[Rfam]
RNA sequence: AACGACAGCAGACUCCCAAGCCUUGCAUGCCUAAGUCGAAAGAUAGGGCUGCCUGGCCGUAGCGUAAGCUGCCAGGGUGCAGAAAGAAAUGACUGCAUCUCCCGUAUUUGGAAAGGUGUUCAGGUGCCACAAUU
Numbered sequence: 001a002a003c004g005a006c007a008g009c010a011g012a013c014u015c016c017c018a019a020g021c022c023u024u025g026c027a028u029g030c031c032u033a034a035g036u037c038g039a040a041a042g043a044u045a046g047g048g049c050u051g052c053c054u055g056g057c058c059g060u061a062g063c064g065u066a067a068g069c070u071g072c073c074a075g076g077g078u079g080c081a082g083a084a085a086g087a088a089a090u091g092a093c094u095g096c097a098u099c100u101c102c103c104g105u106a107u108u109u110g111g112a113a114a115g116g117u118g119u120u121c122a123g124g125u126g127c128c129a130c131a132a133u134u
Stems, first nucleotide, its partner, number of pairs: 004127001011120003015116001017115001020057003025052003029049003035044003059072005075100008085090001101111002